RNA: Eukaryotic large subunit ribosomal RNA, nucleotides 3125 to 3724
RNA sequence: GAAGACCCUGUUGAGCUUGACUCUAGUCUGGCACUGUGAAGAGACAUGAGGGGUGUAGAAUAAGUGGGAGGCCCCGCUCCGCCGGGCGCCGCCAGUGAAAUACCACUACUCUUAUCGUUUCCUCACUAACCCGGUGAGGCGGGGAGGCGAGCCCCGGUGGGCUCUCGCUUCUGGCUUCCAAGCCCUCCCCGGUGCCCCGGCAACCCCGGGGUCUACCGGGGGCGGCGACCCGCUCCGGGGACAGUGGCAGGUGGGGAGUUUGACUGGGGCGGUACACCUGUCAAAGCGUAACGCAGGUGUCCUAAGGCGAGCUCGGGGAGGACAGAAACCUCCCGUAGAGCAGAAGGGCAAAAGCUCGCUUGAUCUUGAUUUUCAGUAUGAAUACAGACCGUGAAAGCGGGGCCUCACGAUCCUUCUGGCUUUUUGGGUUUUAAGCAGGAGGUGUCAGAAAAGUUACCACAGGGAUAACUGGCUUGUGGCGGCCAAGCGUUCAUAGCGACGUCGCUUUUUGAUCCUUCGAUGUCGGCUCUUCCUAUCAUUGUGAAGCAGAAUUCACCAAGCGUUGGAUUGUUCACCCACUAACAGGGAACGUGAGCUGGG
Dot-bracket structure: ......((((.(((((((.((((...((((.((..((((.((((((((((((..........(((((..((.................))............))))).))))))).))))).))))...(((((.....((((.....(((((......))))).................(((.(((((((((...................))))))))).)))..))))..))))).....)).))))....))))..((((.....))).)((((((...........))))))..((....((((((((.((((((.......))))))...))((......))....))))))....(((..((((.......))))..))).(((....))).))..........((((((..(((.........))))))))).........)))))..))))))........(.(.(.((((((...((.......))...))))))...)).)..........(((((((((((..(...(((((......))))).....).(((.(.....).))).....)))))..)..)))).).